[Rfam]
RNA sequence: GAAGAGGAGCAGAGGGCCGCCCCAGGCUUCGCCUGGGGAGGAAAGUCCGGACUCCGCAGGGUAGGCCGCUCGUCAAGGUGCGGCACGCGGCUUUGCCGUGGGGGCGCACCAAGGCGAGAGGGAGCGAUCCCUGGAAAGUGCCACAGAGAAGAGACCGCCGAAGGUCUGGACCUAACCCCCUGGCCCCCUUCCCUCAAGGGAAGGGGGAAGGCCCCUCUCCGCAUCGGGGAGGGGCUGGUGGGGAGGGGGCAGACCAGGCAAGGGUGAAACGGUGGGGUAAGAGCCCACCGCCCCGCUCGCGAGAGUCGGGGGCACGGCAAACCCCGGCCGGAGCAAGACCAAGUAGGGGCGCGUCCGAGAGUGGCCCGCUCGAAUCGUGCCCGGGUAGGUCGCCUAGAGAGAUGGCCCUCACCGAUUGUAGGGGCGAACCUGUGUGUUCGCCCACGGGCAGCACGCAGGUCUGCCCCUACACGGCACAGAAUCCGGCUUAUGCUCCUCUUCUUUU
Dot-bracket structure: ((((((((((((((((((.((((((((...))))))))....[[[.[[[[[((((...[[[[.((((((((((........................................)))))(((((....)))))((...(((((............(((((...(((((...................................................................................))))).)))..)).......((((((.......))))))(((((((((....))).))))).)..)))..)))))))))))))...((((......((((((......((((.]]]])))).....)))))).....))))............))))))).......................................................................]]]]]]]].)))))))))))....
The family of this 505-nucleotide RNA sequence from bacterium HR07 is "Bacterial RNase P class A". The base pairs follow the family's consensus structure, which is taken from published work. Gene Ontology terms of the family: dimeric ribonuclease P complex, tRNA processing and ribonuclease P activity. The match comes from Rfam's covariance-model search (206 bits).